Shown here is a 72-nucleotide RNA from Elachura formosa, a member of the family "Small nucleolar RNA SNORD26".
Its Rfam clan is "SNORD26 clan".
Lineage of the source: Eukaryota > Sauria > Saurischia > Aves > Elachura.
The match comes from Rfam's covariance-model search (58 bits).
On this family, see Tycowski et al., Nature 1996: "A mammalian gene with introns instead of exons generating stable RNA products".
Rfam links the family to the GO terms RNA processing and nucleolus.
Rfam classes the family as a C/D-box small nucleolar RNA.
The family's consensus secondary structure was predicted with PFOLD.
RNA sequence: CCGCGGGGAUGAAGGUGCAGAACUCUCUCUUGCUGAAGCCUCAGUGGAGACGCUGGACAGGCUCUGAGUGGC
Numbered sequence: 001c002c003g004c005g006g007g008g009a010u011g012a013a014g015g016u017g018c019a020g021a022a023c024u025c026u027c028u029c030u031u032g033c034u035g036a037a038g039c040c041u042c043a044g045u046g047g048a049g050a051c052g053c054u055g056g057a058c059a060g061g062c063u064c065u066g067a068g069u070g071g072c
Stems, first nucleotide, its partner, number of pairs: 001071004